[Rfam]
RNA sequence: AACCUUCCCAUUGGGGAGUAGCCGGCUUCCGUUUCACGGAAGCGCCUGCGUCAACAUACUCGGCGUGCACCCUGCACGCUGUGGCGCAGGCAGCCUUUGCAGGUUGGCGAGACCAUUGGCGUGUCAGCACGAUGCGAGUCGGGCAGUGAUGACACGCCUCUGUUCUUGCCCGACCGAGC
Numbered sequence: 001a002a003c004c005u006u007c008c009c010a011u012u013g014g015g016g017a018g019u020a021g022c023c024g025g026c027u028u029c030c031g032u033u034u035c036a037c038g039g040a041a042g043c044g045c046c047u048g049c050g051u052c053a054a055c056a057u058a059c060u061c062g063g064c065g066u067g068c069a070c071c072c073u074g075c076a077c078g079c080u081g082u083g084g085c086g087c088a089g090g091c092a093g094c095c096u097u098u099g100c101a102g103g104u105u106g107g108c109g110a111g112a113c114c115a116u117u118g119g120c121g122u123g124u125c126a127g128c129a130c131g132a133u134g135c136g137a138g139u140c141g142g143g144c145a146g147u148g149a150u151g152a153c154a155c156g157c158c159u160c161u162g163u164u165c166u167u168g169c170c171c172g173a174c175c176g177a178g179c
Base pairs, nucleotide, nucleotide: 025043026042027041044091045090046089047088048087049086050085051084052083053082061081062080063079064078065077066076067075068074069073095178096177097176
RNA: Manganese Mn2+ riboswitch aptamer (yybP-ykoY)
Organism: Variovorax sp. PAMC28562